[Rfam]
Nucleotides: 154
Stems, first nucleotide, its partner, number of pairs: 012138003019034006037133005044074002075119003083092002095113004
Number, partner (000 for none) and nucleotide at each position: 001000u002000u003000u004000u005000u006000u007000a008000u009000a010000u011000u012138g013137c014136c015000g016000a017000a018000u019034c020033c021032u022031g023030u024029g025000a026000a027000a028000g029024c030023a031022c032021a033020g034019g035000u036000a037133c038132g039131g040130g041129g042000g043000a044074u045073a046000a047000u048000u049000g050000c051000g052000g053000a054000g055000c056000u057000a058000a059000g060000c061000a062000c063000a064000a065000g066000g067000c068000u069000u070000c071000g072000c073045u074044g075119g076118g077117g078000u079000g080000a081000a082000g083092g084091c085000g086000g087000a088000c089000a090000a091084g092083c093000c094000c095113g096112g097111g098110u099000c100000u101000a102000u103000a104000u105000c106000c107000u108000c109000u110098a111097u112096c113095c114000g115000a116000a117077c118076c119075c120000g121000a122000c123000a124000a125000c126000u127000a128000a129041c130040c131039u132038c133037g134000g135000a136014g137013g138012u139000u140000a141000a142000g143000g144000a145000g146000g147000a148000g149000a150000u151000a152000u153000g154000u
This 154-nucleotide RNA from Paenalicyclobacillus mengziensis belongs to the Rfam family "c-di-AMP riboswitch aptamer (ydaO/yuaA leader)".
Rfam describes the family as follows. This family represents a conserved RNA structure found upstream of the ydaO and yuaA genes in Bacillus subtilis and related genes in other bacteria.
The match comes from Rfam's covariance-model search (58 bits).